[Rfam]
RNA: Ribosomal protein L10 leader
RNA sequence: UGUUAAAGACGCAUUCAUCCAUAGACAGUAGGUGUUUUACAUAAAUCCUACCGAGGUUGAAGAGAAAAGCUUAUUUAAAAUAUAAAGCUCUCUUCACGCCUGUGGAGUGAGCUUUUUUGAUACGAUU
Numbered sequence: 001u002g003u004u005a006a007a008g009a010c011g012c013a014u015u016c017a018u019c020c021a022u023a024g025a026c027a028g029u030a031g032g033u034g035u036u037u038u039a040c041a042u043a044a045a046u047c048c049u050a051c052c053g054a055g056g057u058u059g060a061a062g063a064g065a066a067a068a069g070c071u072u073a074u075u076u077a078a079a080a081u082a083u084a085a086a087g088c089u090c091u092c093u094u095c096a097c098g099c100c101u102g103u104g105g106a107g108u109g110a111g112c113u114u115u116u117u118u119g120a121u122a123c124g125a126u127u
Base pairs, nucleotide, nucleotide: 028051029050030049031048032047034040035039087112088111089110090109092107093106094105095104096103